The record is a 388-nucleotide RNA sequence from Terasakiella brassicae, which matches "Bacterial RNase P class A" in Rfam. The family's RNA type in Rfam is ribozyme.
RNA sequence: UCAGGUGGUUGGAUGAUCGCUCCAUAGCUGGUAACGGCUAUGGGGAGGAAAGUCCGGGCUUCAUGGAUAUACGGUGCCGGAUAACGUCCGGCGAGGGUGACCUUAGGGAAAGUGCCACAGAAAGCAAACCGCCUUUGUUUACAAAGGUAAGGGUGAAAGGGUGCGGUAAGAGCGCACCGCUGGCCUAGCGAUAGGACAGGCAUGGUAAACCCCACCGGAAGCAAGACCAAAUAGGAACGGACGGCAGAUUCAACGGGCUGCAAAUGCAUAUCCACAUUACCGUUCGGGUGUGUCGCGCGAGGCGUUUGGCAACAAACGUCCCAGACGAAUGAUCAUCCAUCCUGUGCAAACAGGGGGACAGAACCCGGCUUACAGACCACCUGACUUC
Numbered sequence: 001u002c003a004g005g006u007g008g009u010u011g012g013a014u015g016a017u018c019g020c021u022c023c024a025u026a027g028c029u030g031g032u033a034a035c036g037g038c039u040a041u042g043g044g045g046a047g048g049a050a051a052g053u054c055c056g057g058g059c060u061u062c063a064u065g066g067a068u069a070u071a072c073g074g075u076g077c078c079g080g081a082u083a084a085c086g087u088c089c090g091g092c093g094a095g096g097g098u099g100a101c102c103u104u105a106g107g108g109a110a111a112g113u114g115c116c117a118c119a120g121a122a123a124g125c126a127a128a129c130c131g132c133c134u135u136u137g138u139u140u141a142c143a144a145a146g147g148u149a150a151g152g153g154u155g156a157a158a159g160g161g162u163g164c165g166g167u168a169a170g171a172g173c174g175c176a177c178c179g180c181u182g183g184c185c186u187a188g189c190g191a192u193a194g195g196a197c198a199g200g201c202a203u204g205g206u207a208a209a210c211c212c213c214a215c216c217g218g219a220a221g222c223a224a225g226a227c228c229a230a231a232u233a234g235g236a237a238c239g240g241a242c243g244g245c246a247g248a249u250u251c252a253a254c255g256g257g258c259u260g261c262a263a264a265u266g267c268a269u270a271u272c273c274a275c276a277u278u279a280c281c282g283u284u285c286g287g288g289u290g291u292g293u294c295g296c297g298c299g300a301g302g303c304g305u306u307u308g309g310c311a312a313c314a315a316a317c318g319u320c321c322c323a324g325a326c327g328a329a330u331g332a333u334c335a336u337c338c339a340u341c342c343u344g345u346g347c348a349a350a351c352a353g354g355g356g357g358a359c360a361g362a363a364c365c366c367g368g369c370u371u372a373c374a375g376a377c378c379a380c381c382u383g384a385c386u387u388c
Stems, first nucleotide, its partner, number of pairs: 001384010011373001012337007020045009050371003054368005059221004072217005077091005092106001093104004107212002112210002114206003129152002131148007160178006179201001180199003184195004225294003235285006263278004301320008

The match comes from Rfam's covariance-model search (332 bits). The source organism's lineage runs through Bacteria, Pseudomonadati, Rhodospirillales, Terasakiellaceae and Terasakiella. Gene Ontology terms of the family: ribonuclease P activity, dimeric ribonuclease P complex and tRNA processing.